permuted transfer-messenger RNA: a 214-nucleotide RNA sequence from Croceicoccus mobilis. The organism belongs to Croceicoccus, within Bacteria. Rfam links the family to the GO term RNA catabolic process. The family's RNA type in Rfam is non-coding RNA gene. The match comes from Rfam's covariance-model search (143 bits).

RNA sequence: GGCGAUAAAUUGCGGUGUGCAAUAGGCACAGCGGACCCGGGGGCAGUACCCGGCGGCUCCACCAUAUACGCCCGUUGUCGGGGGUUGGAUCAUGGGGCCGAACCAGGAUCGACGUGUGUUGAAAGGCACUGUUUUCGCCCGGGCUGAGUAACCCGCAUAAGGCUCAAAACACACAAGUGCCAACGACAACGAAGCACUCGCUCUCGCAGCGUAA
Numbered sequence: 001g002g003c004g005a006u007a008a009a010u011u012g013c014g015g016u017g018u019g020c021a022a023u024a025g026g027c028a029c030a031g032c033g034g035a036c037c038c039g040g041g042g043g044c045a046g047u048a049c050c051c052g053g054c055g056g057c058u059c060c061a062c063c064a065u066a067u068a069c070g071c072c073c074g075u076u077g078u079c080g081g082g083g084g085u086u087g088g089a090u091c092a093u094g095g096g097g098c099c100g101a102a103c104c105a106g107g108a109u110c111g112a113c114g115u116g117u118g119u120u121g122a123a124a125g126g127c128a129c130u131g132u133u134u135u136c137g138c139c140c141g142g143g144c145u146g147a148g149u150a151a152c153c154c155g156c157a158u159a160a161g162g163c164u165c166a167a168a169a170c171a172c173a174c175a176a177g178u179g180c181c182a183a184c185g186a187c188a189a190c191g192a193a194g195c196a197c198u199c200g201c202u203c204u205c206g207c208a209g210c211g212u213a214a
Stems, first nucleotide, its partner, number of pairs: 001139005015129004027118003031115003037053005054100007140155004